[Rfam]
RNA sequence: GCAGUAUCUCGUUAGGCGAGGCUCCUAUACAAACACAGGUUACUGAUCUGACGACGUCCAGAGACGCCCAAGGUUAGGACAGGUUAUAUCGGAUUAAGGUAUAACCCAAAGUAACUUCUGAGAAAUCAGAUACGUUGUAUAGUGCUAAAACUUAGACACGGAGAUAGCCA
Dot-bracket structure: ....(((((((([.((...(((..((((((((......(((((.(((((.....((((....))))....)))))......((((..(((......])))..))))....))))).(((........)))....)))))))).)))....))...))...))))))....
Numbered sequence: 001g002c003a004g005u006a007u008c009u010c011g012u013u014a015g016g017c018g019a020g021g022c023u024c025c026u027a028u029a030c031a032a033a034c035a036c037a038g039g040u041u042a043c044u045g046a047u048c049u050g051a052c053g054a055c056g057u058c059c060a061g062a063g064a065c066g067c068c069c070a071a072g073g074u075u076a077g078g079a080c081a082g083g084u085u086a087u088a089u090c091g092g093a094u095u096a097a098g099g100u101a102u103a104a105c106c107c108a109a110a111g112u113a114a115c116u117u118c119u120g121a122g123a124a125a126u127c128a129g130a131u132a133c134g135u136u137g138u139a140u141a142g143u144g145c146u147a148a149a150a151c152u153u154a155g156a157c158a159c160g161g162a163g164a165u166a167g168c169c170a
Stems, first nucleotide, its partner, number of pairs: 005166006011157002013097001015152002020146003025142008039115005045075005055066004082106004088100003117130003

Notes: The family of this 170-nucleotide sequence from Yersinia rohdei is "M-box riboswitch aptamer (ykoK leader)". It is one of the family's seed sequences. Its family is annotated with regulation of gene expression and response to magnesium ion in the Gene Ontology. The base pairs follow the family's consensus structure. Rfam describes the family as follows. M-box riboswitch, also know as ykoK leader is described as a metaloregulatory RNA that sense divalent metals and function as a genetic control element of genes related to divalent metal transport in bacteria. It was first reported upstream of the B.subtilis ykoK gene and genes with related functions in other bacteria. Taxonomically the source falls in Yersinia rohdei (Bacteria, Pseudomonadati, Enterobacterales, Yersiniaceae).